[Rfam]
A member of the RNA family "RtT RNA" from Paramixta manurensis, 129 nucleotides long. Rfam's curators write: This family represents a bacterial cis-regulatory element known as RtT RNA. The exact function of RtT is unknown although it is thought that it may be involved in changing the cellular response in relation to amino acid starvation. Pairs were carried over by alignment from the consensus structure, which is taken from published work. Gene Ontology term of the family: cellular response to amino acid starvation. The literature on the family includes a 1991 paper in Nucleic Acids Res by Bosl and Kersten, "A novel RNA product of the tyrT operon of Escherichia coli". Rfam 15.1 lists 651 matches to the family in 204 species.

RNA sequence: UUUCGUCCAGGUAAACUGAGGAUGAGAAUCUCCGAAGGAGGUUUGAGCCGAGCGUAGCGAGACAACGUUGCGCGAGCAACGGCCCGUAGGGCCAUCCCGAAGGGAUGAGUCAUCCUCUCUCACCGACCA
Numbered sequence: 001u002u003u004c005g006u007c008c009a010g011g012u013a014a015a016c017u018g019a020g021g022a023u024g025a026g027a028a029u030c031u032c033c034g035a036a037g038g039a040g041g042u043u044u045g046a047g048c049c050g051a052g053c054g055u056a057g058c059g060a061g062a063c064a065a066c067g068u069u070g071c072g073c074g075a076g077c078a079a080c081g082g083c084c085c086g087u088a089g090g091g092c093c094a095u096c097c098c099g100a101a102g103g104g105a106u107g108a109g110u111c112a113u114c115c116u117c118u119c120u121c122a123c124c125g126a127c128c129a
Base pairs, nucleotide, nucleotide: 015120018117019116020115021114023112034092042088044086045085049059050058066081067080068079069078070077071076
Dot-bracket structure: ..............(..((((.(..........(.......(.((...((.......))......((((((....))))))...)).)...)...................).))))..).........